[Rfam]
RNA sequence: GGUUUAAAGGGUGCGUAGGCGGACUUUUAAGUCAGUGGUGAAAGCCUGUAGCUUAACUAUAGAAUUGCCAUUGAAACUGAAAGUCUCGAGUGUGGUUGAGGUAACUGGAAUAUAUCAUGUAGCGGUGAAAUGCUUAGAUAUGAUAUAGAACACCAAUUGCGAAGGCAGGUUACUGAGCCACAACUGACGCUGAGGCACGAAAGCGUGGGGAUCAAACAGGAUUAGAUACCCUGGUAGUCCACGCUGUAAACGUUGAAUACUCGAUCUUAGCGAUACACAGUUAGGAUCCAAGCGAAAGCGUUAAGUAUUCCACCUGGGAAGUACGAUCGCAAGAUUGAAACUCAAAGGAAU
Numbered sequence: 001g002g003u004u005u006a007a008a009g010g011g012u013g014c015g016u017a018g019g020c021g022g023a024c025u026u027u028u029a030a031g032u033c034a035g036u037g038g039u040g041a042a043a044g045c046c047u048g049u050a051g052c053u054u055a056a057c058u059a060u061a062g063a064a065u066u067g068c069c070a071u072u073g074a075a076a077c078u079g080a081a082a083g084u085c086u087c088g089a090g091u092g093u094g095g096u097u098g099a100g101g102u103a104a105c106u107g108g109a110a111u112a113u114a115u116c117a118u119g120u121a122g123c124g125g126u127g128a129a130a131u132g133c134u135u136a137g138a139u140a141u142g143a144u145a146u147a148g149a150a151c152a153c154c155a156a157u158u159g160c161g162a163a164g165g166c167a168g169g170u171u172a173c174u175g176a177g178c179c180a181c182a183a184c185u186g187a188c189g190c191u192g193a194g195g196c197a198c199g200a201a202a203g204c205g206u207g208g209g210g211a212u213c214a215a216a217c218a219g220g221a222u223u224a225g226a227u228a229c230c231c232u233g234g235u236a237g238u239c240c241a242c243g244c245u246g247u248a249a250a251c252g253u254u255g256a257a258u259a260c261u262c263g264a265u266c267u268u269a270g271c272g273a274u275a276c277a278c279a280g281u282u283a284g285g286a287u288c289c290a291a292g293c294g295a296a297a298g299c300g301u302u303a304a305g306u307a308u309u310c311c312a313c314c315u316g317g318g319a320a321g322u323a324c325g326a327u328c329g330c331a332a333g334a335u336u337g338a339a340a341c342u343c344a345a346a347g348g349a350a351u
Stems, first nucleotide, its partner, number of pairs: 001314003009311001011198004016192001018191003022085007030078002032074009046062006089185003092181006100174007107151001111147008122133003159166002203244006213237001217233004255310006263288009292299002316343003325336004